[Rfam]
RNA sequence: AGCUCUUAUGUUUGUGUUUUUGCUUACCUGUGAAUAAAGACUUAUGGACACGUGCAAAAAAAUAAAUAAAUAAAUCCUAUCUUGCAACCCAGAACUCAUUGUUCAGUGAAUUUUGAUACAUACAAGAAGUAAUGUU
Numbered sequence: 001a002g003c004u005c006u007u008a009u010g011u012u013u014g015u016g017u018u019u020u021u022g023c024u025u026a027c028c029u030g031u032g033a034a035u036a037a038a039g040a041c042u043u044a045u046g047g048a049c050a051c052g053u054g055c056a057a058a059a060a061a062a063u064a065a066a067u068a069a070a071u072a073a074a075u076c077c078u079a080u081c082u083u084g085c086a087a088c089c090c091a092g093a094a095c096u097c098a099u100u101g102u103u104c105a106g107u108g109a110a111u112u113u114u115g116a117u118a119c120a121u122a123c124a125a126g127a128a129g130u131a132a133u134g135u136u
Base pairs, nucleotide, nucleotide: 002055003054005052007050009048011046014041015040017038018037019036021034027032074133075132078129080127081126082125083124084123090115091114092113093112094111096109097108098107099106
Notes:
The record is a 136-nucleotide sequence from Marmota marmota, which matches "Small nucleolar RNA SNORA40" in Rfam. Rfam classes the family as an H/ACA-box small nucleolar RNA. Taxonomically the source falls in Marmota marmota (Eukaryota, Opisthokonta, Chordata, Amniota). From the family's description: The snoRNA ACA 40 belongs to the H/ACA family of snoRNAs and guides the pseudouridylation of 28S rRNA subunit at position U4565. NB This family has a high threshold value to exclude a large number of closely related sequences that do not appear to have conserved H and ACA boxes, and may be pseudogenes. For this family Rfam cites "Mapping to nucleotide resolution of pseudouridine residues in large subunit ribosomal RNAs from representative eukaryotes, prokaryotes, archaebacteria, mitochondria and chloroplasts" (Ofengand and Bakin, J Mol Biol, 1997).